Small nucleolar RNA U109: a 136-nucleotide RNA from Jaculus jaculus. On this family, see Richard et al., EMBO J 2003: "A common sequence motif determines the Cajal body-specific localization of box H/ACA scaRNAs". The organism belongs to Jaculus, within Eukaryota. The match comes from Rfam's covariance-model search (146 bits). It is annotated as an H/ACA-box small nucleolar RNA.
[Rfam]
RNA sequence: UUGCAUGUGGAAAGAUCUGCCUCUCGUUUCUUUGAGGGCAGGAGUGUAUCCAUAACAUGCUACAUUAAUCAAAGGAGUUCUCAGGGCUGCCAACCUUACAGUAGAGGUUGAGUAGUAGUAUAUUUCUCCUACAUUA
Dot-bracket structure: ..((((((.......((((((((..........).)))))))............)))))).............((((........((..((((((((......))))))).)..)).........)))).......